[Rfam]
RNA sequence: UAAAAAAUAAUGCUGAAUUCUCUUAAGAAGCGGGGGAACCAAUUUCUGGGGUGAAUCCUAUUUAGGAGGGGCUACCCUUUAGUCCUAAUCCGGCAGCUAACCUCGUAAGCGUAGAAAGGGGCAGUA
Numbered sequence: 001u002a003a004a005a006a007a008u009a010a011u012g013c014u015g016a017a018u019u020c021u022c023u024u025a026a027g028a029a030g031c032g033g034g035g036g037a038a039c040c041a042a043u044u045u046c047u048g049g050g051g052u053g054a055a056u057c058c059u060a061u062u063u064a065g066g067a068g069g070g071g072c073u074a075c076c077c078u079u080u081a082g083u084c085c086u087a088a089u090c091c092g093g094c095a096g097c098u099a100a101c102c103u104c105g106u107a108a109g110c111g112u113a114g115a116a117a118g119g120g121g122c123a124g125u126a
Base pairs, nucleotide, nucleotide: 011111012110013109014108018029019028020027030106031105032104033103034102035101040048041047049091050090051089057066058065059064069085070084071083072082
RNA: c-di-AMP riboswitch aptamer (ydaO/yuaA leader)